[Rfam]
Rfam assigns this 82-nucleotide RNA from Ruminococcus champanellensis to the family "tRNA". Pairs were carried over by alignment from the consensus structure, which is taken from published work.

RNA sequence: GCGGAUGUGGCGGAAUUGGUAGACGCGCUAGAUUUAGGCUCUAGUGGAUUCAUCCGUGAGUGUUCGAGUCACUUCAUCCGCA
Numbered sequence: 001g002c003g004g005a006u007g008u009g010g011c012g013g014a015a016u017u018g019g020u021a022g023a024c025g026c027g028c029u030a031g032a033u034u035u036a037g038g039c040u041c042u043a044g045u046g047g048a049u050u051c052a053u054c055c056g057u058g059a060g061u062g063u064u065c066g067a068g069u070c071a072c073u074u075c076a077u078c079c080g081c082a
Base pairs, nucleotide, nucleotide: 001081002080003079004078005077006076007075010026011025012024028044029043030042031041032040058074059073060072061071062070